[Rfam]
RNA: chrB-a RNA
RNA sequence: CGUGCGGGGUCGCGAGCACCCCAUCAGGCCUCGGCCCAAGCGUCGCAUCCUUGUUACCGUUCAUUCGGAGGAUGCCUCAUG
Numbered sequence: 001c002g003u004g005c006g007g008g009g010u011c012g013c014g015a016g017c018a019c020c021c022c023a024u025c026a027g028g029c030c031u032c033g034g035c036c037c038a039a040g041c042g043u044c045g046c047a048u049c050c051u052u053g054u055u056a057c058c059g060u061u062c063a064u065u066c067g068g069a070g071g072a073u074g075c076c077u078c079a080u081g
Stems, first nucleotide, its partner, number of pairs: 006022005045075006